Small nucleolar RNA SNORA17: a 131-nucleotide RNA from Mus musculus. Rfam classes the family as an H/ACA-box small nucleolar RNA. The family has 53 seed sequences and 5,784 matches in Rfam 15.1. Pairs were carried over by alignment from the consensus structure, which was predicted with RNAalifold. Clan: SNORA17 clan. About the family: snoRNA ACA 17 belongs to the H/ACA family of snoRNAs and is predicted to guide pseudouridylation of the 28S rRNA at positions U4659 and U4598. It shares the same host gene together with ACA43.

Nucleotides: 131
Base pairs, nucleotide, nucleotide: 002061005058006057007055008054009053013049014048015047019046020045021044024041025040026039027038028037029036068128072124073123074122075121076120077119083115084114086112088110089109090107091106092105093104094103
Number, partner (000 for none) and nucleotide at each position: 001000c002061c003000a004000a005058c006057c007055c008054c009053u010000g011000g012000a013049g014048a015047c016000u017000u018000g019046g020045c021044a022000g023000g024041u025040g026039u027038g028037g029036c030000u031000g032000c033000u034000g035000u036029g037028u038027c039026a040025c041024a042000u043000a044021u045020g046019u047015g048014u049013c050000a051000g052000g053009a054008g055007g056000u057006g058005g059000c060000a061002g062000a063000g064000a065000a066000g067000a068128g069000a070000g071000a072124g073123g074122c075121u076120a077119u078000g079000u080000c081000u082000a083115u084114g085000c086112u087000a088110a089109g090107u091106g092105u093104u094103c095000u096000u097000a098000u099000u100000g101000g102000u103094g104093a105092a106091c107090a108000u109089c110088u111000g112086a113000a114084u115083g116000a117000u118000u119077a120076u121075a122074g123073c124072c125000g126000a127000a128068u129000a130000a131000u